Small nucleolar RNA snoR27: a 97-nucleotide sequence from Brassica napus.
NCBI's taxonomy places the organism under Eukaryota, Streptophyta, Streptophytina, Pentapetalae, Brassica.
The family's consensus secondary structure was predicted with WAR.
Its family is annotated with nucleolus and RNA processing in the Gene Ontology.
A search with the family's covariance model found it, with a score of 77 bits.
By type it is a C/D-box small nucleolar RNA.
The literature on the family includes a 2001 paper in RNA by Brown et al., "Multiple snoRNA gene clusters from Arabidopsis".
[Rfam]
RNA sequence: AUCAGAUCGAUGAUGUUAAUCAAAAAACUGCGUUAUCUAUCUUAAAAUCUCCGAAAUAGGAGUUGCAGAUACUAAACAGAAUACGCUGAGAUCUGAU
Numbered sequence: 001a002u003c004a005g006a007u008c009g010a011u012g013a014u015g016u017u018a019a020u021c022a023a024a025a026a027a028c029u030g031c032g033u034u035a036u037c038u039a040u041c042u043u044a045a046a047a048u049c050u051c052c053g054a055a056a057u058a059g060g061a062g063u064u065g066c067a068g069a070u071a072c073u074a075a076a077c078a079g080a081a082u083a084c085g086c087u088g089a090g091a092u093c094u095g096a097u
Stems, first nucleotide, its partner, number of pairs: 001097007